[Rfam]
RNA sequence: CUCUUAUCCGGAGUGGCGGAGGGACUGGCCCUAUGAAGCCCGGCAACCUUUGGGUAUAUAGGCGUACCCAAAAAGGUGCUAAUUCCUGCAGGAGAUUUAUCUUCUGACAGAUAAGGG
Number, nucleotide and partner (000 for none) at each position: 001c117002u116003c115004u114005u113006a112007u111008c110009c000010g000011g000012a000013g041014u000015g040016g039017c038018g000019g000020a000021g031022g030023g029024a000025c088026u000027g086028g085029c023030c022031c021032u000033a000034u000035g000036a000037a000038g017039c016040c015041c013042g080043g079044c078045a077046a000047c076048c075049u072050u071051u070052g069053g068054g067055u066056a065057u000058a000059u000060a000061g000062g000063c000064g000065u056066a055067c054068c053069c052070a051071a050072a049073a000074a000075g048076g047077u045078g044079c043080u042081a000082a000083u000084u109085c028086c027087u000088g025089c106090a105091g104092g103093a102094g101095a000096u000097u000098u000099a000100u000101c094102u093103u092104c091105u090106g089107a000108c000109a084110g008111a007112u006113a005114a004115g003116g002117g001
The family of this 117-nucleotide RNA from Pelotomaculum thermopropionicum is "SAM riboswitch aptamer (S box leader)". Gene Ontology term of the family: regulation of gene expression. The organism belongs to Pelotomaculum thermopropionicum, within Bacteria.